Source information: This 74-nucleotide sequence from Plutella xylostella belongs to the Rfam family "mir-8517 microRNA precursor family". It scores 72 bits against the family's covariance model. Pairs were carried over by alignment from the consensus structure, which was predicted with RNAalifold. Taxonomically the source falls in Plutella (Eukaryota, Altocrustacea, Endopterygota, Plutellidae).
RNA sequence: UUAGUGAACGCUUUAGCUAUUGGACUGUUCUGAGAGAGGGACAAAACAGUUCAAUAGCUAAAUCAUCCACUAAC
Numbered sequence: 001u002u003a004g005u006g007a008a009c010g011c012u013u014u015a016g017c018u019a020u021u022g023g024a025c026u027g028u029u030c031u032g033a034g035a036g037a038g039g040g041a042c043a044a045a046a047c048a049g050u051u052c053a054a055u056a057g058c059u060a061a062a063u064c065a066u067c068c069a070c071u072a073a074c
Base pairs, nucleotide, nucleotide: 001073002072003071004070005069006068012062013061014060015059016058017057018056019055020054021053022052023051024050025049026048027047028046029035030034